[Rfam]
RNA sequence: AAUCCAGAGCAAAAGGUCCUAAUAUACUGCACUUAAAACAUUUUUUCUUAGCUGGCAAUAGUGAUGCCAUGUUACGAGCCUUAAAGACAGUUGAGGUCAUUAAGGUCCCUGAAAAUGGCUACAAUA
Numbered sequence: 001a002a003u004c005c006a007g008a009g010c011a012a013a014a015g016g017u018c019c020u021a022a023u024a025u026a027c028u029g030c031a032c033u034u035a036a037a038a039c040a041u042u043u044u045u046u047c048u049u050a051g052c053u054g055g056c057a058a059u060a061g062u063g064a065u066g067c068c069a070u071g072u073u074a075c076g077a078g079c080c081u082u083a084a085a086g087a088c089a090g091u092u093g094a095g096g097u098c099a100u101u102a103a104g105g106u107c108c109c110u111g112a113a114a115a116u117g118g119c120u121a122c123a124a125u126a
Base pairs, nucleotide, nucleotide: 004055005054006053007052017038066119067118068117069116078106079105080104081103082102083101084100086098087097088096
RNA: Small nucleolar RNA SNORA33